Record summary
mir-101 microRNA precursor family: a 75-nucleotide sequence from Aquarana catesbeiana. A reference for the family is Mourelatos et al. (2002), "miRNPs: a novel class of ribonucleoproteins containing numerous microRNAs", Genes Dev.
[Rfam]
RNA sequence: UGUCCUUUUUCGGUUAUCAUGGUACCGGUACUGUAUAUGUAAUUGGUACAGUACUGUGAUAACUGAAGAAUGGUG
Numbered sequence: 001u002g003u004c005c006u007u008u009u010u011c012g013g014u015u016a017u018c019a020u021g022g023u024a025c026c027g028g029u030a031c032u033g034u035a036u037a038u039g040u041a042a043u044u045g046g047u048a049c050a051g052u053a054c055u056g057u058g059a060u061a062a063c064u065g066a067a068g069a070a071u072g073g074u075g
Base pairs, nucleotide, nucleotide: 011065012064013063014062015061016060017059018058019057020056021055022054023053024052025051027049029048030047031046032045